[Rfam]
RNA sequence: GCUGGAAUUGCGCGGGUUGUAGUCGAUGAAGGCAUAGCCGCGCGACUGGUCGAUGGCAUGGAACAGUGGGUUCCAGUCGAACAUCGCCAGCAUCGCGGGUGGCAGCGUGUUGGCGACGAACAUCUUGCCCGACGCGAUCAUGUUGGCGCGCUG
Dot-bracket structure: ..((...((...(((.......)))...))..))..((((((........)).))))......(((((.((((.....))))...((((((((.....(((((((.((.(((....)))..)).))).))).)......)))))))).)))))
RNA: Ruegeria cis2 sRNA